Shown here is a 57-nucleotide RNA sequence from Fructilactobacillus florum, a member of the family "Ribosomal protein L13 leader". Lineage of the source: Bacteria > Bacillota > Lactobacillaceae > Fructilactobacillus > Fructilactobacillus florum. Rfam's curators write: This family is a putative r-protein leader autoregulatory structure found in B. subtilis and other low-GC Gram-positive bacteria. It is located in the 5' untranslated regions of mRNAs encoding the L13-S9 (rplM-rpsI) ribosomal protein operon. Pairs were carried over by alignment from the consensus structure, which was predicted with CMfinder. By type it is a cis-regulatory leader. Gene Ontology term of the family: regulation of gene expression.

RNA sequence: GGUAUUGUUUGCCCCACAUAAGCCCCGGAAACUUAUAAGGUGUCGAACAAACACAGA
Numbered sequence: 001g002g003u004a005u006u007g008u009u010u011g012c013c014c015c016a017c018a019u020a021a022g023c024c025c026c027g028g029a030a031a032c033u034u035a036u037a038a039g040g041u042g043u044c045g046a047a048c049a050a051a052c053a054c055a056g057a
Base pairs, nucleotide, nucleotide: 006053007052008051009050010049011048014040015039018036019035020034021033022032
Dot-bracket structure: .....((((((..((..(((((.........)))))..)).......))))))....